This 59-nucleotide sequence from Bifidobacterium scardovii belongs to the Rfam family "msiK RNA". A search with the family's covariance model found it, with a score of 61 bits. It is annotated as a cis-regulatory element.

[Rfam]
Nucleotides: 059
Base pairs, nucleotide, nucleotide: 009051010050011049012048014046015045027044028043029042030041031040032039
Number, partner (000 for none) and nucleotide at each position: 001000c002000a003000c004000c005000g006000a007000a008000a009051c010050c011049u012048u013000c014046c015045a016000c017000a018000a019000c020000g021000g022000a023000u024000c025000g026000u027044g028043a029042g030041g031040c032039a033000c034000g035000u036000a037000c038000c039032u040031g041030c042029c043028u044027c045015u046014g047000a048012a049011a050010g051009g052000a053000u054000g055000a056000a057000a058000c059000a